The family of this 54-nucleotide RNA is "chrB-b RNA".

RNA sequence: CCGGGUCGAUCGCAGGCACCCGGUCCGAAAAGACGGUUCCGUCUCAAGCGCUGC
Number, nucleotide and partner (000 for none) at each position: 001c023002c022003g021004g020005g019006u018007c000008g000009a000010u000011c000012g054013c053014a052015g051016g000017c000018a006019c005020c004021c003022g002023g001024u000025c000026c000027g000028a000029a000030a000031a000032g043033a042034c041035g040036g000037u000038u000039c000040c035041g034042u033043c032044u000045c000046a000047a000048g000049c000050g000051c015052u014053g013054c012